Rfam assigns this 112-nucleotide RNA from Paenibacillus larvae to the family "azaaromatic riboswitch aptamer (yjdF RNA)". Rfam's curators put it in the seed alignment. The base pairs follow the family's consensus structure, which is taken from published work.
RNA sequence: GAAGUGGAGUGUAAAAACACAGUCUGGUUGGUAGUCCUAGACACACGUCGUCAUGACCAAAGACGUGUCAGUAACCUUCCCCCUCGGGAUGUCCCUCACUACGGGAACUUCA
Numbered sequence: 001g002a003a004g005u006g007g008a009g010u011g012u013a014a015a016a017a018c019a020c021a022g023u024c025u026g027g028u029u030g031g032u033a034g035u036c037c038u039a040g041a042c043a044c045a046c047g048u049c050g051u052c053a054u055g056a057c058c059a060a061a062g063a064c065g066u067g068u069c070a071g072u073a074a075c076c077u078u079c080c081c082c083c084u085c086g087g088g089a090u091g092u093c094c095c096u097c098a099c100u101a102c103g104g105g106a107a108c109u110u111c112a
Base pairs, nucleotide, nucleotide: 005103006102008100009099010098011097022042023041024040025039026037027036043068044067045066046065047064048063078089079088080087081086